[Rfam]
RNA sequence: GGGUCGAGCGGCGGCCAGUGGGACGGCCGCCACGGAUGGACCCACCGACGAAGUCCGCUCUCACGGAGAGCUGCCCCGCGCCCCCGGCGGAGCAGC
Numbered sequence: 001g002g003g004u005c006g007a008g009c010g011g012c013g014g015c016c017a018g019u020g021g022g023a024c025g026g027c028c029g030c031c032a033c034g035g036a037u038g039g040a041c042c043c044a045c046c047g048a049c050g051a052a053g054u055c056c057g058c059u060c061u062c063a064c065g066g067a068g069a070g071c072u073g074c075c076c077c078g079c080g081c082c083c084c085c086g087g088c089g090g091a092g093c094a095g096c
Base pairs, nucleotide, nucleotide: 001043002042003041004040005039010031011030012029013028014027015026016025070096071095072094073093074092076090077089078088
This 96-nucleotide sequence belongs to the Rfam family "Rhodo-rpoB RNA". Pairs were carried over by alignment from the consensus structure, which is taken from published work. Rfam's curators put it in the seed alignment.